[Rfam]
Record summary
This 111-nucleotide RNA from Erwinia tracheiphila belongs to the Rfam family "Alpha operon ribosome binding site". Rfam classes the family as a cis-regulatory element. The literature on the family includes a 2001 paper in J Biol Chem by Schlax et al., "Translational repression of the Escherichia coli alpha operon mRNA: importance of an mRNA conformational switch and a ternary entrapment complex". Gene Ontology term of the family: ribosome binding. The base pairs follow the family's consensus structure, which is taken from published work. About the family: The bacterial alpha operon ribosome binding site is surrounded by this complex pseudoknotted structure.
Nucleotides: 111
Base pairs, nucleotide, nucleotide: 003056004055005054006053007052008051009050011049012048013047024095025094026093032086033085034084035083040110041109042108
Number, partner (000 for none) and nucleotide at each position: 001000u002000c003056u004055g005054u006053g007052c008051g009050u010000a011049c012048c013047c014000a015000u016000u017000u018000g019000a020000g021000u022000a023000u024095c025094c026093u027000g028000a029000a030000a031000a032086c033085g034084g035083g036000c037000u038000u039000u040110u041109c042108g043000g044000u045000a046000u047013g048012g049011g050009a051008c052007g053006c054005a055004u056003a057000a058000g059000u060000a061000a062000u063000u064000a065000a066000a067000u068000a069000g070000g071000a072000g073000u074000g075000c076000a077000u078000a079000g080000u081000g082000g083035c084034c085033c086032g087000u088000a089000u090000a091000g092000c093026a094025g095024g096000c097000a098000u099000u100000a101000a102000c103000a104000u105000u106000c107000c108042u109041g110040a111000u